[Rfam]
RNA sequence: AAGAAAAAUCCGGGAGAGAUUAUGCAGGCUUCCAUUUCGCCGGAAAGCUGCUGCAUAGCGCCGAAGGGGCAGUCGCAACAAACUCUCAGGCAGAAGGACCGGAUUGGGACG
Numbered sequence: 001a002a003g004a005a006a007a008a009u010c011c012g013g014g015a016g017a018g019a020u021u022a023u024g025c026a027g028g029c030u031u032c033c034a035u036u037u038c039g040c041c042g043g044a045a046a047g048c049u050g051c052u053g054c055a056u057a058g059c060g061c062c063g064a065a066g067g068g069g070c071a072g073u074c075g076c077a078a079c080a081a082a083c084u085c086u087c088a089g090g091c092a093g094a095a096g097g098a099c100c101g102g103a104u105u106g107g108g109a110c111g
Stems, first nucleotide, its partner, number of pairs: 007105007020058008060091003063087002067085003073078001
RNA: Glycine riboswitch aptamer